RNA: glmS glucosamine-6-phosphate activated ribozyme aptamer
Organism: Peribacillus loiseleuriae
RNA sequence: GUACUAAUAUAAGCGCCAGAACUAAGCUCGGACGAUAUGGCUUAGUUGACGAGGUGGAGGUUUAUCGAGAUUUCGGCGGAUGCCUCCCGGUUGUAUGUGUAUAGCCGCAAAAAUUUCGAUUUUAAAACAGCUGGGCAACUUGCUGCACAAAGGAUCGGAAAUACACAUAA
Numbered sequence: 001g002u003a004c005u006a007a008u009a010u011a012a013g014c015g016c017c018a019g020a021a022c023u024a025a026g027c028u029c030g031g032a033c034g035a036u037a038u039g040g041c042u043u044a045g046u047u048g049a050c051g052a053g054g055u056g057g058a059g060g061u062u063u064a065u066c067g068a069g070a071u072u073u074c075g076g077c078g079g080a081u082g083c084c085u086c087c088c089g090g091u092u093g094u095a096u097g098u099g100u101a102u103a104g105c106c107g108c109a110a111a112a113a114u115u116u117c118g119a120u121u122u123u124a125a126a127a128c129a130g131c132u133g134g135g136c137a138a139c140u141u142g143c144u145g146c147a148c149a150a151a152g153g154a155u156c157g158g159a160a161a162u163a164c165a166c167a168u169a170a
Stems, first nucleotide, its partner, number of pairs: 020047008029039001056087005065076004088107006114160007128145004133140002